[Rfam]
RNA sequence: GGCAGAGUAGAUGUAAGCGCGUUAAGUGCUAGUUGGACGGGAAGUUGCCACUAGACGAAAAGCUUAAUGCUUGCGGUGCUUAUGUCGCAUUCCGCUGCC
Numbered sequence: 001g002g003c004a005g006a007g008u009a010g011a012u013g014u015a016a017g018c019g020c021g022u023u024a025a026g027u028g029c030u031a032g033u034u035g036g037a038c039g040g041g042a043a044g045u046u047g048c049c050a051c052u053a054g055a056c057g058a059a060a061a062g063c064u065u066a067a068u069g070c071u072u073g074c075g076g077u078g079c080u081u082a083u084g085u086c087g088c089a090u091u092c093c094g095c096u097g098c099c
Stems, first nucleotide, its partner, number of pairs: 001099005010086010020075003026056002029054005035049002040092003044088001060072004
Shown here is a 99-nucleotide RNA sequence from Zhenhengia yiwuensis, a member of the family "THF (Tetrahydrofolate) riboswitch aptamer".
For this family Rfam cites "The structure of a tetrahydrofolate-sensing riboswitch reveals two ligand binding sites in a single aptamer" (Trausch et al., Structure, 2011).
NCBI's taxonomy places the organism under Bacteria, Bacillati, Clostridia, Lachnospirales, Zhenhengia.
The family's consensus secondary structure is taken from published work.
Tetrahydrofolate (THF) riboswitch was first reported for Ames et al. as an RNA motif in 5' untranslated (5'-UTR)regions of folate transport and biosynthesis genes in Firmicutes genomes.
A search with the family's covariance model found it, with a score of 93 bits.